Rfam assigns this 76-nucleotide RNA from Myotis lucifugus to the family "mir-9229 microRNA precursor family". Rfam 15.1 lists 27,225 matches to the family in 9 species.
[Rfam]
RNA sequence: GAAACACCCUUCUGGGGCAAGACUUGCUUCAGUGGAGCUUUGGUGCUCACUGAGUCUGUCCCCUGAGUGUGUUUCU
Number, nucleotide and partner (000 for none) at each position: 001g075002a074003a073004a072005c071006a070007c069008c000009c067010u066011u065012c000013u000014g062015g061016g060017g059018c058019a057020a000021g056022a055023c054024u000025u000026g000027c000028u000029u053030c052031a051032g050033u049034g048035g047036a000037g044038c043039u000040u000041u000042g000043g038044u037045g000046c000047u035048c034049a033050c032051u031052g030053a029054g023055u022056c021057u019058g018059u017060c016061c015062c014063c000064u000065g011066a010067g009068u000069g007070u006071g005072u004073u003074u002075c001076u000